[Rfam]
RNA sequence: GUGGGAACGGCGCGACCGCAAAUCCGACUCGCCUUCGGGCUUGGGAUUGCGGGAGUGU
Numbered sequence: 001g002u003g004g005g006a007a008c009g010g011c012g013c014g015a016c017c018g019c020a021a022a023u024c025c026g027a028c029u030c031g032c033c034u035u036c037g038g039g040c041u042u043g044g045g046a047u048u049g050c051g052g053g054a055g056u057g058u
Base pairs, nucleotide, nucleotide: 010058011057012056013055016052017051018050019049020048021047024045025044031040032039033038
RNA: S15-Halobacteria ribosomal protein leader
Organism: Haloplanus salinarum